[Rfam]
RNA sequence: AGGCUGAUAUUGGAUGAAUCCUACCCGGUGAGGUAUUUAUAAUUUCCUAACCAAGCGGGAUUCCACCCGACAGCAG
Numbered sequence: 001a002g003g004c005u006g007a008u009a010u011u012g013g014a015u016g017a018a019u020c021c022u023a024c025c026c027g028g029u030g031a032g033g034u035a036u037u038u039a040u041a042a043u044u045u046c047c048u049a050a051c052c053a054a055g056c057g058g059g060a061u062u063c064c065a066c067c068c069g070a071c072a073g074c075a076g
Base pairs, nucleotide, nucleotide: 003074004073005072006071010070011069012068013067015065016064017062018061019060020059021058022057027052028051029050032047033046
Shown here is a 76-nucleotide RNA sequence from Nasonia vitripennis, a member of the family "mir-3478 microRNA precursor family".
Rfam 15.1 lists 14 matches to the family in 14 species.
Taxonomically the source falls in Nasonia (Eukaryota, Ecdysozoa, Pterygota, Hymenoptera).